[Rfam]
RNA: TPP riboswitch aptamer (THI element)
Organism: Brachybacterium endophyticum
RNA sequence: AUCCACAGACAGGGGAGCACCCCGGCGGUGCUGAGAGUGCGCGAGAUGCGCAGACCCUCGAACCUGAUCCGGUUCACACCGGCGUAGGGAGUCGGGAUUCUUCUGCG
Numbered sequence: 001a002u003c004c005a006c007a008g009a010c011a012g013g014g015g016a017g018c019a020c021c022c023c024g025g026c027g028g029u030g031c032u033g034a035g036a037g038u039g040c041g042c043g044a045g046a047u048g049c050g051c052a053g054a055c056c057c058u059c060g061a062a063c064c065u066g067a068u069c070c071g072g073u074u075c076a077c078a079c080c081g082g083c084g085u086a087g088g089g090a091g092u093c094g095g096g097a098u099u100c101u102u103c104u105g106c107g
Stems, first nucleotide, its partner, number of pairs: 006095001008093003011058004017031005038052005063088004069082004